Small nucleolar RNA SNORD10: a 142-nucleotide RNA sequence from Esox lucius. Rfam 15.1 lists 433 matches to the family in 306 species. Taxonomically the source falls in Esox (Eukaryota, Opisthokonta, Euteleostomi, Euteleosteomorpha). Rfam classes the family as a C/D-box small nucleolar RNA. The literature on the family includes a 2001 paper in EMBO J by Huttenhofer et al., "RNomics: an experimental approach that identifies 201 candidates for novel, small, non-messenger RNAs in mouse". Its family is annotated with nucleolus and RNA processing in the Gene Ontology.

RNA sequence: GUAUAAUGAUGAAAUCCAUGCGUGUCAACUGAAUCUGGAACACCCUGAGUUCUAGUUCCACCCGUCGGCGUUCUGUGGGCUGGUGUGUUCUGAAACUCCAGGGCUCCGGAACUCAUGAUCAGAGUUCACUAUGGCUGAAUAC
Numbered sequence: 001g002u003a004u005a006a007u008g009a010u011g012a013a014a015u016c017c018a019u020g021c022g023u024g025u026c027a028a029c030u031g032a033a034u035c036u037g038g039a040a041c042a043c044c045c046u047g048a049g050u051u052c053u054a055g056u057u058c059c060a061c062c063c064g065u066c067g068g069c070g071u072u073c074u075g076u077g078g079g080c081u082g083g084u085g086u087g088u089u090c091u092g093a094a095a096c097u098c099c100a101g102g103g104c105u106c107c108g109g110a111a112c113u114c115a116u117g118a119u120c121a122g123a124g125u126u127c128a129c130u131a132u133g134g135c136u137g138a139a140u141a142c
Stems, first nucleotide, its partner, number of pairs: 001142004043103005048097004